The family of this 175-nucleotide sequence from Hibiscus syriacus is "MIR168 microRNA precursor family". The family has 10 seed sequences and 518 matches in Rfam 15.1. A search with the family's covariance model found it, with a score of 108 bits. Gene Ontology terms of the family: miRNA-mediated post-transcriptional gene silencing and RISC complex. On this family, see Reinhart et al., Genes Dev 2002: "MicroRNAs in plants".
Nucleotides: 175
Base pairs, nucleotide, nucleotide: 013162014161017158018157019156020155023152024151025150026149027148028147029146030145031144032143034141035140036139037138038137040135041134042133043132044131045130
Number, partner (000 for none) and nucleotide at each position: 001000u002000u003000a004000c005000c006000g007000g008000c009000g010000g011000u012000c013162u014161c015000u016000a017158a018157u019156u020155c021000g022000c023152u024151u025150g026149g027148u028147g029146c030145a031144g032143g033000u034141c035140g036139g037138g038137a039000a040135c041134u042133g043132a044131u045130u046000g047000g048000c049000u050000g051000c052000u053000c054000c055000u056000u057000a058000a059000u060000a061000u062000u063000a064000g065000a066000u067000u068000g069000g070000a071000c072000u073000g074000g075000a076000u077000u078000u079000g080000u081000u082000u083000u084000u085000u086000a087000u088000u089000u090000u091000g092000a093000u094000u095000u096000u097000u098000a099000a100000g101000c102000c103000a104000g105000a106000u107000g108000g109000g110000c111000c112000g113000u114000g115000a116000u117000u118000g119000g120000a121000g122000g123000a124000u125000g126000c127000a128000c129000a130045a131044a132043u133042u134041g135040g136000a137038u138037c139036c140035c141034g142000c143032c144031u145030u146029g147028c148027a149026u150025c151024a152023a153000c154000u155020g156019a157018a158017u159000c160000g161014g162013a163000g164000a165000c166000c167000g168000c169000g170000g171000u172000g173000a174000g175000g